[Rfam]
Nucleotides: 068
Stems, first nucleotide, its partner, number of pairs: 005062001008059001011030003016026003035056001037054002040052005
Number, partner (000 for none) and nucleotide at each position: 001000u002000u003000g004000g005062c006000g007000g008059u009000c010000g011030g012029g013028u014000c015000g016026a017025c018024c019000u020000c021000a022000c023000g024018g025017g026016u027000a028013a029012c030011u031000a032000c033000c034000a035056g036000g037054u038053a039000u040052u041051c042050g043049c044048g045000c046000a047000g048044u049043g050042c051041g052040a053038u054037g055000g056035c057000g058000u059008g060000c061000a062005g063000a064000u065000g066000c067000u068000c

Annotation: A member of the RNA family "ASdes TB sRNA", 68 nucleotides long. The family has 26 seed sequences and 1,192 matches in Rfam 15.1. On this family, see Arnvig and Young, Mol Microbiol 2009: "Identification of small RNAs in Mycobacterium tuberculosis". Rfam classes the family as a small RNA.